[Rfam]
Source information:
The record is a 69-nucleotide RNA sequence from Denticeps clupeoides, which matches "mir-8/mir-141/mir-200 microRNA precursor family" in Rfam. Gene Ontology terms of the family: miRNA-mediated post-transcriptional gene silencing and RISC complex. A search with the family's covariance model found it, with a score of 62 bits.
RNA sequence: GGGCUCAUCUUACCUGGCAGUGUUGGGCUGUUCCUGAAUGUUCUAACACUGUCUGGUAAUGAUGUUCAC
Numbered sequence: 001g002g003g004c005u006c007a008u009c010u011u012a013c014c015u016g017g018c019a020g021u022g023u024u025g026g027g028c029u030g031u032u033c034c035u036g037a038a039u040g041u042u043c044u045a046a047c048a049c050u051g052u053c054u055g056g057u058a059a060u061g062a063u064g065u066u067c068a069c
Base pairs, nucleotide, nucleotide: 003067006064007063008062009061010059011058012057013056014055016053017052018051019050020049021048022047023046024045025044026043027042